[Rfam]
RNA sequence: UGGGCGGUAUCAUAAUUGAACUGCACCACUGGUUCGGAUUGAUUGGGUAGGUGAUUGAUCAUGUUAGUUUAAACUAAUAUUCCUCCGCUUGGAGCCUGUGGGACCGAGACGGGUUU
Dot-bracket structure: ((((((((.((......))))))).)))........................................................((((((((..((....)).))))).)))....
Description:
Shown here is a 116-nucleotide RNA sequence from Sporotomaculum syntrophicum, a member of the family "pan motif". The family's consensus secondary structure is taken from published work.